Fluoride riboswitch aptamer (crcB RNA motif): a 63-nucleotide sequence from Imtechella halotolerans.
RNA sequence: CCUUGUUAUGGCAAUGAUGUCUGCCUUGAACCGCCUUAUAAAGCUGAUGACGUCUAUAAAGAG
Numbered sequence: 001c002c003u004u005g006u007u008a009u010g011g012c013a014a015u016g017a018u019g020u021c022u023g024c025c026u027u028g029a030a031c032c033g034c035c036u037u038a039u040a041a042a043g044c045u046g047a048u049g050a051c052g053u054c055u056a057u058a059a060a061g062a063g
Base pairs, nucleotide, nucleotide: 010025011024012023013022016054017053018052019051020050021049033044034043036041